A member of the RNA family "U7 small nuclear RNA" from Prolemur simus, 61 nucleotides long.
RNA sequence: CAGUGUUACAGCCCUUUUAGAAUUUGCCUAGCAGGUUUUCAGUCCUCACCAGAAGACCCCC
Numbered sequence: 001c002a003g004u005g006u007u008a009c010a011g012c013c014c015u016u017u018u019a020g021a022a023u024u025u026g027c028c029u030a031g032c033a034g035g036u037u038u039u040c041a042g043u044c045c046u047c048a049c050c051a052g053a054a055g056a057c058c059c060c061c
Base pairs, nucleotide, nucleotide: 034058035057036056037055038054039053040052042049043048
Rfam describes the family as follows. Animal histone pre-mRNAs are spliced by a different mechanism than nuclear pre-mRNAs and self-splicing introns. This processing involves the U7 snRNP, which contains only one RNA species: U7. The 5' end of U7 RNA is thought to base-pair to a conserved spacer element downstream of the cleavage site in histone pre-mRNA. This family contains a number of annotated U7 pseudogenes.